The family of this 75-nucleotide RNA from Aphis craccivora is "mir-965 microRNA precursor family". Its family is annotated with RISC complex and miRNA-mediated post-transcriptional gene silencing in the Gene Ontology. The literature on the family includes a 2012 paper in Bioorg Khim by Huang et al., "The regulation of silkworm fibroin L chain production by miRNA-965 and miRNA-1926 in insect cells". The family has 16 seed sequences and 224 matches in Rfam 15.1. It scores 57 bits against the family's covariance model.
[Rfam]
Nucleotides: 075
Base pairs, nucleotide, nucleotide: 003073004072005070006069007068011065012064014062015061018058019057020056021055022054027050028049029048030047031046
Number, partner (000 for none) and nucleotide at each position: 001000u002000g003073c004072u005070g006069a007068a008000a009000g010000a011065g012064g013000a014062a015061a016000a017000g018058u019057u020056a021055u022054a023000a024000c025000g026000g027050u028049u029048a030047u031046g032000u033000u034000c035000a036000u037000a038000a039000u040000a041000a042000c043000a044000g045000u046031c047030g048029u049028a050027a051000g052000c053000g054022u055021a056020u057019a058018g059000c060000u061015u062014u063000u064012c065011c066000c067000c068007u069006u070005c071000u072004a073003g074000u075000g